[Rfam]
RNA sequence: CAAGGCCUAUGAUGGAAUAAGAUAAUAUGCCUACAUUGUCUGAUCAUUUUUUAACUUGAUUGAGAAAAUUUGGACUGAGGCCUUG
Numbered sequence: 001c002a003a004g005g006c007c008u009a010u011g012a013u014g015g016a017a018u019a020a021g022a023u024a025a026u027a028u029g030c031c032u033a034c035a036u037u038g039u040c041u042g043a044u045c046a047u048u049u050u051u052u053a054a055c056u057u058g059a060u061u062g063a064g065a066a067a068a069u070u071u072g073g074a075c076u077g078a079g080g081c082c083u084u085g
Stems, first nucleotide, its partner, number of pairs: 001085002004082004
The family of this 85-nucleotide sequence from Nicotiana tabacum is "Small nucleolar RNA SNORD34". On this family, see Galardi et al., Mol Cell Biol 2002: "Purified box C/D snoRNPs are able to reproduce site-specific 2'-O-methylation of target RNA in vitro". Its family is annotated with RNA processing and nucleolus in the Gene Ontology. Rfam classes the family as a C/D-box small nucleolar RNA. About the family: snoRNA U34 is found in intron 5 of the ribosomal protein L13a gene in humans. The family's consensus secondary structure was predicted with PFOLD.